[Rfam]
RNA sequence: GGGGACGACCUGGCUUCGACGGCGGUGAUGAAACCUUAGGUGCAUGUCGUGUGGGUAGCAACACACGUACUCCAAGUGCUGCACAAGAUAGUCGCAAACGACGAAUCUUACGCUCUAGCAGCUUAAUCGCUGCCAGCCGAUGACCCUGUUCGCCCAUGGGUGGGAAUCAUCGGUAACUUACAUGGGAUCGCGACCUCGGUUUGUCUGGGACUGGGGAGUUAAAAAGUACAGACUGGCAAUGAUCGCCCUGCCCCUUCGGGUAGAUCAGAGCGAGAUCAGUAGAUCGGGAUACACAUGUAGAGCUUAAGGCAGAGUACUGUCGGACGCGGGUUCAAUUCCCGCCGUCUCCACCA
Numbered sequence: 001g002g003g004g005a006c007g008a009c010c011u012g013g014c015u016u017c018g019a020c021g022g023c024g025g026u027g028a029u030g031a032a033a034c035c036u037u038a039g040g041u042g043c044a045u046g047u048c049g050u051g052u053g054g055g056u057a058g059c060a061a062c063a064c065a066c067g068u069a070c071u072c073c074a075a076g077u078g079c080u081g082c083a084c085a086a087g088a089u090a091g092u093c094g095c096a097a098a099c100g101a102c103g104a105a106u107c108u109u110a111c112g113c114u115c116u117a118g119c120a121g122c123u124u125a126a127u128c129g130c131u132g133c134c135a136g137c138c139g140a141u142g143a144c145c146c147u148g149u150u151c152g153c154c155c156a157u158g159g160g161u162g163g164g165a166a167u168c169a170u171c172g173g174u175a176a177c178u179u180a181c182a183u184g185g186g187a188u189c190g191c192g193a194c195c196u197c198g199g200u201u202u203g204u205c206u207g208g209g210a211c212u213g214g215g216g217a218g219u220u221a222a223a224a225a226g227u228a229c230a231g232a233c234u235g236g237c238a239a240u241g242a243u244c245g246c247c248c249u250g251c252c253c254c255u256u257c258g259g260g261u262a263g264a265u266c267a268g269a270g271c272g273a274g275a276u277c278a279g280u281a282g283a284u285c286g287g288g289a290u291a292c293a294c295a296u297g298u299a300g301a302g303c304u305u306a307a308g309g310c311a312g313a314g315u316a317c318u319g320u321c322g323g324a325c326g327c328g329g330g331u332u333c334a335a336u337u338c339c340c341g342c343c344g345u346c347u348c349c350a351c352c353a
Stems, first nucleotide, its partner, number of pairs: 001349007020322008029313001034309008043297005048067005055082006115136002118133005137173006145164004153186006191218001194215003203233005236271002240267005246260003252288002256283002326342005
A member of the RNA family "transfer-messenger RNA" from gamma proteobacterium HdN1, 353 nucleotides long. Clan: tRNA clan. Rfam describes the family as follows. Bacterial tmRNA, also known as 10Sa RNA or SsrA, is named for its dual tRNA and mRNA-like properties. Its role is to liberate the mRNA from a stalled ribosome. The match comes from Rfam's covariance-model search (197 bits). Pairs were carried over by alignment from the consensus structure, which is taken from published work. The source organism's lineage runs through Bacteria, Pseudomonadati, Pseudomonadota and Gammaproteobacteria.